Record summary
The record is a 144-nucleotide RNA from Castor canadensis, which matches "Small nucleolar RNA SNORA4" in Rfam. Rfam 15.1 lists 290 matches to the family in 136 species. The match comes from Rfam's covariance-model search (89 bits). It is annotated as an H/ACA-box small nucleolar RNA. ACA4 is a member of the H/ACA class of snoRNA that guide the sites of modification of uridines to pseudouridines. Its Rfam clan is "SNORA4 clan". Pairs were carried over by alignment from the consensus structure, which was predicted with PFOLD. NCBI's taxonomy places the organism under Eukaryota, Opisthokonta, Deuterostomia, Amniota, Castor.
[Rfam]
Nucleotides: 144
Stems, first nucleotide, its partner, number of pairs: 004065005013059003017055001021053001025049002028046001029043002032040001078138001080136005094123007102115002
Number, partner (000 for none) and nucleotide at each position: 001000c002000u003000a004065c005064c006063a007062a008061a009000a010000g011000u012000c013059a014058a015057u016000u017055u018000u019000u020000g021053g022000u023000g024000g025049g026048g027000a028046a029043g030042g031000c032040u033000u034000u035000u036000u037000a038000a039000u040032a041000a042030u043029c044000u045000u046028u047000a048026c049025u050000a051000a052000c053021u054000u055017g056000u057015g058014u059013u060000a061008u062007u063006u064005g065004g066000g067000a068000g069000a070000a071000u072000a073000a074000a075000u076000a077000u078138g079000a080136c081135u082134a083133c084132a085000c086000a087000c088000u089000c090000c091000g092000u093000a094123g095122u096121g097120g098119g099118c100117u101000a102115u103114a104000c105000a106000a107000u108000u109000u110000a111000u112000u113000u114103u115102a116000c117100a118099g119098u120097u121096c122095a123094u124000g125000a126000c127000u128000a129000u130000u131000g132084u133083g134082u135081g136080g137000c138078c139000u140000a141000u142000g143000u144000u